[Rfam]
RNA sequence: CCCUUUGAAUCGCUGAAACGGCCGGUUUUGGCCGUGCGGGGGACCCACACGUUUUCCCUAUGGGGGUGAACCUUUUCAGGCGGAAGACUCUCGCUUCCGAACCCGACAGCUAACCUCGUAAGCGUUAAAAGAGAGAAAGG
Numbered sequence: 001c002c003c004u005u006u007g008a009a010u011c012g013c014u015g016a017a018a019c020g021g022c023c024g025g026u027u028u029u030g031g032c033c034g035u036g037c038g039g040g041g042g043a044c045c046c047a048c049a050c051g052u053u054u055u056c057c058c059u060a061u062g063g064g065g066g067u068g069a070a071c072c073u074u075u076u077c078a079g080g081c082g083g084a085a086g087a088c089u090c091u092c093g094c095u096u097c098c099g100a101a102c103c104c105g106a107c108a109g110c111u112a113a114c115c116u117c118g119u120a121a122g123c124g125u126u127a128a129a130a131g132a133g134a135g136a137a138a139g140g
Stems, first nucleotide, its partner, number of pairs: 011124004018035007036119006046063001064104003072079002082098004
RNA: c-di-AMP riboswitch aptamer (ydaO/yuaA leader)
Organism: Marinococcus luteus